[Rfam]
RNA: c-di-GMP-I-GGC riboswitch aptamer
Organism: Alteromonadales bacterium alter-6D02
Nucleotides: 085
Stems, first nucleotide, its partner, number of pairs: 004081001011036002016031003021026001034071001039078004044074003047069003
Number, partner (000 for none) and nucleotide at each position: 001000a002000c003000u004081g005000a006000c007000a008000a009000a010000g011036g012035c013000a014000a015000a016031c017030c018029a019000u020000u021026c022000g023000a024000a025000a026021g027000u028000u029018u030017g031016g032000g033000a034071c035012g036011c037000a038000a039078a040077g041076c042075c043000a044074c045073c046072g047069g048068u049067c050000u051000a052000c053000u054000g055000a056000u057000a058000u059000a060000c061000g062000u063000c064000g065000a066000c067049g068048a069047u070000a071034g072046c073045g074044g075042g076041g077040c078039u079000a080000c081004u082000c083000a084000a085000g